Source information:
A member of the RNA family "Archaeal large subunit ribosomal RNA" from Halovenus carboxidivorans, 263 nucleotides of a longer RNA. The organism belongs to Halovenus, within Archaea. Its family is annotated with structural constituent of ribosome and ribosome in the Gene Ontology. The family's consensus secondary structure is taken from published work. The match comes from Rfam's covariance-model search (2836 bits).
RNA sequence: GAGUGUGCUUGUUUGGCGAGCCUAACCCGAUUAUCGGGGAAGGCACAGGGAAACCAACAUGGCCGCAGGGCUUUGCCCCAGGGCCGCCGUGUUCAAGUGCGGGGAGUCAAACGGGCACGACCCGAAUCCGGACGAUCUAUGCGUGGGUAAGGUGAAGCAUGGCGAAAGUCAUGUGGAGGCCUGUUAGAGUUGGUGUCCUACAAUACCCUCUCGUAACCUACGUAUAGGGGUGAAAGGCCCAUCGAGUCCGGCAACAGCUGGUU
Number, nucleotide and partner (000 for none) at each position: 001g000002a000003g000004u000005g118006u117007g116008c115009u114010u113011g112012u111013u110014u109015g108016g107017c106018g000019a000020g044021c043022c042023u041024a000025a000026c038027c037028c036029g035030a000031u000032u000033a000034u000035c029036g028037g027038g026039g000040a000041a023042g022043g021044c020045a000046c000047a000048g055049g054050g000051a000052a000053a000054c049055c048056a000057a000058c000059a000060u000061g085062g084063c083064c082065g000066c000067a000068g078069g077070g076071c075072u000073u000074u000075g071076c070077c069078c068079c000080a000081g000082g064083g063084c062085c061086g000087c000088c101089g100090u099091g098092u000093u000094c000095a000096a000097g000098u091099g090100c089101g088102g000103g000104g000105a000106g017107u016108c015109a014110a013111a012112c011113g010114g009115g008116c007117a006118c005119g000120a000121c261122c260123c000124g258125a000126a000127u000128c251129c250130g249131g248132a247133c246134g000135a000136u000137c227138u226139a225140u224141g223142c222143g221144u220145g219146g218147g217148u215149a000150a182151g181152g180153u179154g000155a000156a000157g174158c173159a172160u171161g170162g169163c168164g000165a000166a000167a000168g163169u162170c161171a160172u159173g158174u157175g000176g000177a000178g000179g153180c152181c151182u150183g000184u000185u000186a000187g212188a211189g210190u000191u000192g208193g207194u000195g206196u205197c000198c000199u000200a000201c000202a000203a000204u000205a196206c195207c193208c192209u000210c189211u188212c187213g000214u000215a148216a000217c147218c146219u145220a144221c143222g142223u141224a140225u139226a138227g137228g000229g239230g238231u237232g000233a000234a000235a000236g000237g231238c230239c229240c000241a000242u000243c000244g000245a000246g133247u132248c131249c130250g129251g128252c000253a000254a000255c000256a000257g000258c124259u000260g122261g121262u000263u000